[Rfam]
RNA: Small nucleolar RNA snoR26
RNA sequence: ACAGCAUCGAUGAUGAGCUUCUCAUUGUUAUCCUUGCACUAUGAUUUCUAAUGAAGAAAAACAUGGGGAAAUAUGUUCUGAGAUGCGU
Dot-bracket structure: ...(((((.........................................................................)))))..
Numbered sequence: 001a002c003a004g005c006a007u008c009g010a011u012g013a014u015g016a017g018c019u020u021c022u023c024a025u026u027g028u029u030a031u032c033c034u035u036g037c038a039c040u041a042u043g044a045u046u047u048c049u050a051a052u053g054a055a056g057a058a059a060a061a062c063a064u065g066g067g068g069a070a071a072u073a074u075g076u077u078c079u080g081a082g083a084u085g086c087g088u
Stems, first nucleotide, its partner, number of pairs: 004086005